[Rfam]
RNA sequence: UUUACGAUUGGUUAAGCUUUCUCGAUUAUGACUGGAAUGUCCUUGAUUGGACGCCGAGUGGCUUCCUGUCCACUCUGUUUGACGCCUCCCUGUUAUCAACUCAGGCCGCCGGAAACGGCGGCUUUUUUUU
Numbered sequence: 001u002u003u004a005c006g007a008u009u010g011g012u013u014a015a016g017c018u019u020u021c022u023c024g025a026u027u028a029u030g031a032c033u034g035g036a037a038u039g040u041c042c043u044u045g046a047u048u049g050g051a052c053g054c055c056g057a058g059u060g061g062c063u064u065c066c067u068g069u070c071c072a073c074u075c076u077g078u079u080u081g082a083c084g085c086c087u088c089c090c091u092g093u094u095a096u097c098a099a100c101u102c103a104g105g106c107c108g109c110c111g112g113a114a115a116c117g118g119c120g121g122c123u124u125u126u127u128u129u130u
Stems, first nucleotide, its partner, number of pairs: 008030001013028003017024001039052004056075006081094004103124009

The family of this 130-nucleotide sequence from Nitrobacter hamburgensis is "Alphaproteobacterial sRNA BjrC1505".
The base pairs follow the family's consensus structure.
The organism belongs to Nitrobacter hamburgensis, within Bacteria.